[Rfam]
RNA: mir-219 microRNA precursor family
RNA sequence: UCUGGUGCUGAUUGUCCAAACGCAAUUCUUGUGCUUGUGUGAAGCAGGAGUUGUGGAUGGACAUCAUGCUCCUGA
Numbered sequence: 001u002c003u004g005g006u007g008c009u010g011a012u013u014g015u016c017c018a019a020a021c022g023c024a025a026u027u028c029u030u031g032u033g034c035u036u037g038u039g040u041g042a043a044g045c046a047g048g049a050g051u052u053g054u055g056g057a058u059g060g061a062c063a064u065c066a067u068g069c070u071c072c073u074g075a
Stems, first nucleotide, its partner, number of pairs: 002074001004072002007069001009066004014062005021055011